[Rfam]
RNA sequence: CUGUUGGCGGGAGGCUGUGACGCGCGGCCCAGAUACGCGCCGCCGGGACCGCGCCGAGCCACUGGCGAGACCGACCCGCGAGGAU
Numbered sequence: 001c002u003g004u005u006g007g008c009g010g011g012a013g014g015c016u017g018u019g020a021c022g023c024g025c026g027g028c029c030c031a032g033a034u035a036c037g038c039g040c041c042g043c044c045g046g047g048a049c050c051g052c053g054c055c056g057a058g059c060c061a062c063u064g065g066c067g068a069g070a071c072c073g074a075c076c077c078g079c080g081a082g083g084a085u
Base pairs, nucleotide, nucleotide: 002084004082005081007079008078009077010076011075013060014059015058022054023053024052025051026050027049029047039071041067042066043065044064
This 85-nucleotide sequence belongs to the Rfam family "c-di-GMP-II-GAG riboswitch aptamer". The base pairs follow the family's consensus structure, which is taken from published work. On this family, see Weinberg et al., Proc Natl Acad Sci U S A 2017: "Bioinformatic analysis of riboswitch structures uncovers variant classes with altered ligand specificity". The sequence is in the family's curated seed alignment. Gene Ontology terms of the family: cyclic-di-GMP binding and regulation of gene expression. Its Rfam clan is "c-di-GMP_II riboswitch clan".